[Rfam]
The record is a 67-nucleotide RNA sequence from Epulopiscium sp. Nele67-Bin004, which matches "RAGATH-18 RNA" in Rfam. A search with the family's covariance model found it, with a score of 56 bits. Actinobacteria, Firmicutes, Fusobacteria, Thermotogae (1 example). Lineage of the source: Bacteria > Bacillati > Bacillota > Clostridia > Candidatus Epulonipiscium.

RNA sequence: CCUGUGGAGAGUUACAUCAAAUGUUAUUAAGGGGAAAGUGCUGAGGACAGACUCUAUGAAGCAGGAA
Numbered sequence: 001c002c003u004g005u006g007g008a009g010a011g012u013u014a015c016a017u018c019a020a021a022u023g024u025u026a027u028u029a030a031g032g033g034g035a036a037a038g039u040g041c042u043g044a045g046g047a048c049a050g051a052c053u054c055u056a057u058g059a060a061g062c063a064g065g066a067a
Stems, first nucleotide, its partner, number of pairs: 001065005009054005022049003030042002